[Rfam]
RNA sequence: UGAGACAGGCCACGGAAGAAGUGCUCAUGGCAUGGCCUGUCAGAUUUCAAUGAAAUCUGUGAAUUCUCCU
Numbered sequence: 001u002g003a004g005a006c007a008g009g010c011c012a013c014g015g016a017a018g019a020a021g022u023g024c025u026c027a028u029g030g031c032a033u034g035g036c037c038u039g040u041c042a043g044a045u046u047u048c049a050a051u052g053a054a055a056u057c058u059g060u061g062a063a064u065u066c067u068c069c070u
Base pairs, nucleotide, nucleotide: 008037009036010035011034014070015069017067018066019065020064021033022032023031041059042058043057044056045055046054047053

Shown here is a 70-nucleotide RNA from Alligator mississippiensis, a member of the family "Mammalian CPEB3 ribozyme". NCBI's taxonomy places the organism under Eukaryota, Sauropsida, Crocodylia, Alligatorinae, Alligator. The match comes from Rfam's covariance-model search (47 bits).